[Rfam]
RNA: purD RNA motif
Organism: Sulfurovum sp. UBA12169
RNA sequence: GUAGCAGAUCGGUGUGCGGAUGGUUUCGUUUGAGCACGGCUUAAAGCCUGCGAGAAAUUGUCCCCUAAAGAGAUGCUCUCUCCCGCAUCGUUGGCUAAUUAGGGCCGACUUGAAGCAGAACGCCUACCCGGGG
Numbered sequence: 001g002u003a004g005c006a007g008a009u010c011g012g013u014g015u016g017c018g019g020a021u022g023g024u025u026u027c028g029u030u031u032g033a034g035c036a037c038g039g040c041u042u043a044a045a046g047c048c049u050g051c052g053a054g055a056a057a058u059u060g061u062c063c064c065c066u067a068a069a070g071a072g073a074u075g076c077u078c079u080c081u082c083c084c085g086c087a088u089c090g091u092u093g094g095c096u097a098a099u100u101a102g103g104g105c106c107g108a109c110u111u112g113a114a115g116c117a118g119a120a121c122g123c124c125u126a127c128c129c130g131g132g133g
Base pairs, nucleotide, nucleotide: 003077004076005075006074009071018063019062020061021060022059024057025056026055027054034051035050036049091108092107093106094105095104096103